[Rfam]
RNA sequence: ACGGGGAAAGCCGAAAAUCCGGAAAAGAGUAGGCA
Numbered sequence: 001a002c003g004g005g006g007a008a009a010g011c012c013g014a015a016a017a018u019c020c021g022g023a024a025a026a027g028a029g030u031a032g033g034c035a
Base pairs, nucleotide, nucleotide: 002021003020004019005018010034011033012032
RNA: DUF805b RNA